[Rfam]
Nucleotides: 059
Stems, first nucleotide, its partner, number of pairs: 008055007018045003021041006
Number, partner (000 for none) and nucleotide at each position: 001000g002000g003000u004000a005000u006000g007000u008055u009054a010053u011052u012051u013050a014049g015000c016000c017000c018045c019044a020043c021041g022040a023039u024038a025037a026036g027000c028000c029000c030000c031000g032000g033000a034000a035000a036026c037025u038024u039023a040022u041021u042000c043020g044019u045018g046000u047000u048000u049014u050013u051012a052011a053010a054009u055008a056000a057000a058000u059000c
Annotation
A member of the RNA family "Ribosomal protein L13 leader" from Bacillus smithii, 59 nucleotides long. This family is a putative r-protein leader autoregulatory structure found in B. subtilis and other low-GC Gram-positive bacteria. It is located in the 5' untranslated regions of mRNAs encoding the L13-S9 (rplM-rpsI) ribosomal protein operon. The organism belongs to Bacillus smithii, within Bacteria. For this family Rfam cites "Diverse mechanisms for regulating ribosomal protein synthesis in Escherichia coli" (Zengel and Lindahl, Prog Nucleic Acid Res Mol Biol, 1994). Gene Ontology term of the family: regulation of gene expression. Rfam classes the family as a cis-regulatory leader.